[Rfam]
RNA sequence: UACUGGGAAGAAUGAUGAAACAAAUUAGAUGUCUGAAAAUCCAUGAGUUAAAAACUAUCGAGGCAUAUUUGAUAUUCUGACUUUCCCUGUU
Numbered sequence: 001u002a003c004u005g006g007g008a009a010g011a012a013u014g015a016u017g018a019a020a021c022a023a024a025u026u027a028g029a030u031g032u033c034u035g036a037a038a039a040u041c042c043a044u045g046a047g048u049u050a051a052a053a054a055c056u057a058u059c060g061a062g063g064c065a066u067a068u069u070u071g072a073u074a075u076u077c078u079g080a081c082u083u084u085c086c087c088u089g090u091u
Base pairs, nucleotide, nucleotide: 002090003089005087006086007085008084009082010081
The family of this 91-nucleotide RNA from Daucus carota is "Small nucleolar RNA Z266". The family's consensus secondary structure was predicted with PFOLD. Gene Ontology terms of the family: RNA processing and nucleolus. The family has 11 seed sequences and 719 matches in Rfam 15.1. The family's RNA type in Rfam is C/D-box small nucleolar RNA. The match comes from Rfam's covariance-model search (50 bits).